[Rfam]
RNA sequence: CCGGAGCCGUUCACGUACGGGGCCCGUCCACGUCCGCUUCGGCGGCAGGAUGCAAGGGCCCGCGAUGGACGGCCUGGAUGGAGGUUGCGCCAUG
Numbered sequence: 001c002c003g004g005a006g007c008c009g010u011u012c013a014c015g016u017a018c019g020g021g022g023c024c025c026g027u028c029c030a031c032g033u034c035c036g037c038u039u040c041g042g043c044g045g046c047a048g049g050a051u052g053c054a055a056g057g058g059c060c061c062g063c064g065a066u067g068g069a070c071g072g073c074c075u076g077g078a079u080g081g082a083g084g085u086u087g088c089g090c091c092a093u094g
Base pairs, nucleotide, nucleotide: 014064015063016062020061021060022059023058024057025056026051027050028049034045035044036043037042
Dot-bracket structure: .............(((...(((((((((.....((((....))))...)))....)))))))))..............................